[Rfam]
RNA sequence: UUACACGCGGCGGGAGAGAGCCGGCAGAUGCCCGGCCGCCGAAGGCGCAAUUCGCCCAGAAUCGCUCAGGCACCCCGUACCGCCCGUGUAUUG
Number, nucleotide and partner (000 for none) at each position: 001u000002u000003a000004c000005a000006c088007g087008c086009g085010g083011c082012g081013g080014g000015a000016g000017a000018g000019a000020g036021c035022c034023g033024g000025c000026a000027g000028a000029u000030g000031c000032c000033c023034g022035g021036c020037c000038g071039c070040c069041g067042a066043a000044g000045g065046c064047g063048c000049a000050a000051u058052u000053c000054g000055c000056c000057c000058a051059g000060a000061a000062u000063c047064g046065c045066u042067c041068a000069g040070g039071c038072a000073c000074c000075c000076c000077g000078u000079a000080c013081c012082g011083c010084c000085c009086g008087u007088g006089u000090a000091u000092u000093g000
The family of this 93-nucleotide sequence from Candidimonas nitroreducens is "Glycine riboswitch aptamer". The organism belongs to Candidimonas, within Bacteria. It scores 56 bits against the family's covariance model. The pairing is the family consensus, mapped onto this sequence.